Rfam assigns this 555-nucleotide part of an RNA from Empedobacter falsenii to the family "Bacterial small subunit ribosomal RNA". NCBI's taxonomy places the organism under Bacteria, Pseudomonadati, Bacteroidota, Weeksellaceae, Empedobacter.
Nucleotides: 555
Stems, first nucleotide, its partner, number of pairs: 009025005027545004032541006039397006045390002047355001052353003056350003061098003066095002070091001072089007105308003114233008124225002129221007137171004145162001147160005177201005182195005206213002234280003241271003246268008283305004287298004310331005333344004361387001363386003369382005400431004410422004437481005445472001451466003489534005500529005510517002
Number, partner (000 for none) and nucleotide at each position: 001000a002000c003000a004000a005000u006000g007000g008000a009025g010024a011023g012022u013021u014000u015000g016000a017000u018000c019000c020000u021013g022012g023011c024010u025009c026000a027545g028544g029543a030542u031000g032541a033540a034539c035538g036537c037536u038000a039397g040396c041395g042394g043393g044392a045390g046389g047355c048000u049000u050000a051000a052353c053352a054351c055000a056350u057349g058348c059000a060000a061098g062097c063096c064000g065000a066095g067094g068000g069000g070091u071000a072089u073088a074087g075086u076085u077084a078083g079000c080000u081000u082000g083078c084077u085076a086075a087074c088073u089072a090000g091070a092000g093000a094067c095066c096063g097062g098061c099000g100000c101000a102000c103000g104000g105308g106307u107306g108000c109000g110000u111000a112000a113000c114233g115232c116231g117230u118229a119228u120227g121226c122000a123000a124225c125224u126000u127000g128000c129221c130220c131219u132218a133217c134216u135215g136000a137171a138170a139169a140168g141000g142000a143000u144000a145162g146000c147160c148159c149158u150157u151156c152000g153000a154000a155000a156151g157150g158149a159148g160147g161000a162145u163000u164000a165000a166000u167000a168140c169139u170138u171137u172000a173000u174000a175000a176000u177201a178200g179199a180198a181197a182195u183194c184193a185192u186191g187000g188000c189000a190000u191186c192185a193184u194183g195182a196000a197181u198180u199179u200178u201177u202000g203000a204000a205000a206213g207212a208000u209000u210000u211000a212207u213206c214000g215135c216134a217133g218132u219131a220130g221129g222000a223000u224125a225124g226121g227120c228119a229118u230117g231116c232115g233114u234280a235279a236278g237000a238000u239000u240000a241271g242270u243269u244000a245000g246268u247267u248266g249265g250264u251263g252262a253261g254000g255000u256000a257000a258000c259000g260000g261253c262252u263251c264250a265249c266248c267247a268246a269243g270242a271241c272000g273000a274000u275000g276000a277000u278236c279235u280234u281000u282000a283305g284304g285303g286302g287298g288297c289296c290295u291000g292000a293000g294000a295290g296289g297288g298287u299000g300000a301000a302286c303285c304284c305283c306107c307106a308105c309000a310331c311330u312329g313328g314327u315000a316000c317000u318000g319000a320000g321000a322000c323000a324000c325000g326000g327314a328313c329312c330311a331310g332000a333344c334343u335342c336341c337000u338000a339000c340000g341336g342335g343334a344333g345000g346000c347000a348058g349057c350056a351054g352053u353052g354000a355047g356000g357000a358000a359000u360000a361387u362000u363386g364385g365384a366000c367000a368000a369382u370381g371380g372379g373378u374000g375000g376000a377000a378373g379372c380371c381370u382369g383000a384365u385364c386363c387361a388000g389046c390045c391000a392044u393043c394042c395041c396040g397039c398000g399000u400431g401430u402429a403428g404000g405000a406000u407000g408000a409000c410422g411421g412420c413419c414000u415000u416000a417000u418000g419413g420412g421411u422410u423000g424000u425000a426000a427000a428403c429402u430401a431400c432000u433000u434000u435000u436000a437481u438480c439479u440478g441477g442000g443000g444000a445472u446000a447000a448000a449000c450000c451466u452465a453464c454000u455000u456000a457000c458000g459000u460000g461000u462000a463000a464453g465452u466451a467000g468000c469000u470000g471000a472445a473000g474000g475000u476000a477441c478440c479439a480438g481437a482000a483000g484000a485000a486000u487000a488000a489534g490533c491532a492531c493530c494000g495000g496000c497000u498000a499000a500529c501528u502527c503526c504525g505000u506000g507000c508000c509000a510517g511516c512000a513000g514000c515000c516511g517510c518000g519000g520000u521000a522000a523000u524000a525504c526503g527502g528501a529500g530493g531492g532491u533490g534489c535000a536037a537036g538035c539034g540033u541032u542030a543029u544028c545027c546000g547000g548000a549000u550000u551000u552000a553000u554000u555000g